The record is a 141-nucleotide RNA from Musa balbisiana, which matches "small nucleolar RNA snoR134" in Rfam. It scores 86 bits against the family's covariance model. Its family is annotated with RNA processing and nucleolus in the Gene Ontology. The organism belongs to Musa, within Eukaryota. The family's consensus secondary structure was predicted with RNAalifold. By type it is an H/ACA-box small nucleolar RNA.
[Rfam]
RNA sequence: AUGCACGGUGCACCCCGGGCUUCUCUGAAAGUCGUAUGACGAUCGAGGCCCCAAUGCCCGUGCGAGAUUGAGUUUCCGUUCGGUGUUGCAGUUCGGUUGAUGGUAUCCCACGACUGAUCUGUGUCAGUGACGGCCAAAUUU
Dot-bracket structure: ..((((((.((.....((((((.((...............))..).)))))....))))))))............(((((...((.(((((...(.(..............).)....))))).))..)))))........